[Rfam]
RNA sequence: GCCAUCCUUUCCUUGGGGCUGUGCUACUGUCCAAUGCGCGCAUAGUGAGGGAAGUACUGCUAACCCUAAACACACCCACAUCAACCACAGCUUUGCUUUACAUUGGUGCAAUUUUUAGAAAA
Numbered sequence: 001g002c003c004a005u006c007c008u009u010u011c012c013u014u015g016g017g018g019c020u021g022u023g024c025u026a027c028u029g030u031c032c033a034a035u036g037c038g039c040g041c042a043u044a045g046u047g048a049g050g051g052a053a054g055u056a057c058u059g060c061u062a063a064c065c066c067u068a069a070a071c072a073c074a075c076c077c078a079c080a081u082c083a084a085c086c087a088c089a090g091c092u093u094u095g096c097u098u099u100a101c102a103u104u105g106g107u108g109c110a111a112u113u114u115u116u117a118g119a120a121a122a
Stems, first nucleotide, its partner, number of pairs: 006018004021060003026055003030051003038046002079108005087099001089097003